The family of this 71-nucleotide RNA sequence from Nyctereutes procyonoides is "mir-2985 microRNA precursor family". Its family is annotated with RISC complex and miRNA-mediated post-transcriptional gene silencing in the Gene Ontology. The base pairs follow the family's consensus structure, which was predicted with RNAalifold. RNAs can be post-transcriptional modified, in micro RNAs (miRNA) editing of pre-mRNA is a common process. Lineage of the source: Eukaryota > Vertebrata > Tetrapoda > Boreoeutheria > Nyctereutes. Rfam 15.1 lists 2,000 matches to the family in 637 species. For this family Rfam cites "Song exposure regulates known and novel microRNAs in the zebra finch auditory forebrain" (Gunaratne et al., BMC Genomics, 2011).
RNA sequence: CUCAUUAAGGUGGGUGGGAUAGUAUAACAAUGUCGCGUGUGUUGUUAUAAUAUUCCACCUUCCCUGAUGGC
Numbered sequence: 001c002u003c004a005u006u007a008a009g010g011u012g013g014g015u016g017g018g019a020u021a022g023u024a025u026a027a028c029a030a031u032g033u034c035g036c037g038u039g040u041g042u043u044g045u046u047a048u049a050a051u052a053u054u055c056c057a058c059c060u061u062c063c064c065u066g067a068u069g070g071c
Stems, first nucleotide, its partner, number of pairs: 003069005009063002012060006019053003023049011